The record is a 127-nucleotide RNA sequence from Cajanus cajan, which matches "U11 spliceosomal RNA" in Rfam. It scores 77 bits against the family's covariance model. The organism belongs to Cajanus, within Eukaryota.

[Rfam]
RNA sequence: AAAAAGGGUCAGUUGGCUAAAUAUGCCACGUCCAUCCUCGAUUGAUGGAUGCUGUAUGGCUAUCAAGACAUAUGGCUGACAUAAUUUCUGGGACUCAAUAGGGUUGGCUCGCCUAGCCGACCCUUCA
Dot-bracket structure: .......(((((.((((.......))))((((((((.......))))))))(((((((..........)))))))))))).................(..(.(((((((.....))))))))..)..
Numbered sequence: 001a002a003a004a005a006g007g008g009u010c011a012g013u014u015g016g017c018u019a020a021a022u023a024u025g026c027c028a029c030g031u032c033c034a035u036c037c038u039c040g041a042u043u044g045a046u047g048g049a050u051g052c053u054g055u056a057u058g059g060c061u062a063u064c065a066a067g068a069c070a071u072a073u074g075g076c077u078g079a080c081a082u083a084a085u086u087u088c089u090g091g092g093a094c095u096c097a098a099u100a101g102g103g104u105u106g107g108c109u110c111g112c113c114u115a116g117c118c119g120a121c122c123c124u125u126c127a
Stems, first nucleotide, its partner, number of pairs: 008080005014028004029051008052075007098125001101122001103121007